[Rfam]
RNA: tRNA
RNA sequence: CUGAAAUUAGCUCAGUUGGUUAGAGCAUGGUGCUGAUAACAUCAAGGUUGUGGGUUCAAACCCCAUAUGUAAGU
Dot-bracket structure: ((.(.((..((((.........)))).(((((.......))))).....(((((.......))))))).).)).